[Rfam]
RNA sequence: AGCUAUUUAUAUCAUUACCAAAUUGCACACUUAACAUAACUGUUAAAUGUGCAAACUGGUAAUGAAAUAAAUACUG
Numbered sequence: 001a002g003c004u005a006u007u008u009a010u011a012u013c014a015u016u017a018c019c020a021a022a023u024u025g026c027a028c029a030c031u032u033a034a035c036a037u038a039a040c041u042g043u044u045a046a047a048u049g050u051g052c053a054a055a056c057u058g059g060u061a062a063u064g065a066a067a068u069a070a071a072u073a074c075u076g
Stems, first nucleotide, its partner, number of pairs: 004073007012065009024053006031046006
This 76-nucleotide RNA from Hydra vulgaris belongs to the Rfam family "mir-3003 microRNA precursor family".
The family's consensus secondary structure was predicted with RNAalifold.
NCBI's taxonomy places the organism under Eukaryota, Hydroidolina, Anthoathecata, Hydridae, Hydra.